[Rfam]
RNA: c-di-AMP riboswitch aptamer (ydaO/yuaA leader)
RNA sequence: UCGAUGGGAAUGCUGCAGCGGCUUCCGGCACAUAAGUGCGGGGGACUUUUUACUACGGACAGGCUGUUACUCGAAGCUUAUCCGUUCUGGGGUGAAUCGCGUAAUUUACGCGUAGGGUUGUAUCCUCAAUCCGAAUCCGACAACUAACCUCGUAGGCGAACAAAAGGAGAGGA
Dot-bracket structure: (.................................)..((((((....(........................................)(((.....((((.......))))..((((..........))))...))).........))))))....................
Numbered sequence: 001u002c003g004a005u006g007g008g009a010a011u012g013c014u015g016c017a018g019c020g021g022c023u024u025c026c027g028g029c030a031c032a033u034a035a036g037u038g039c040g041g042g043g044g045a046c047u048u049u050u051u052a053c054u055a056c057g058g059a060c061a062g063g064c065u066g067u068u069a070c071u072c073g074a075a076g077c078u079u080a081u082c083c084g085u086u087c088u089g090g091g092g093u094g095a096a097u098c099g100c101g102u103a104a105u106u107u108a109c110g111c112g113u114a115g116g117g118u119u120g121u122a123u124c125c126u127c128a129a130u131c132c133g134a135a136u137c138c139g140a141c142a143a144c145u146a147a148c149c150u151c152g153u154a155g156g157c158g159a160a161c162a163a164a165a166g167g168a169g170a171g172g173a
Stems, first nucleotide, its partner, number of pairs: 001035001038153006048089001090138003098112004115132004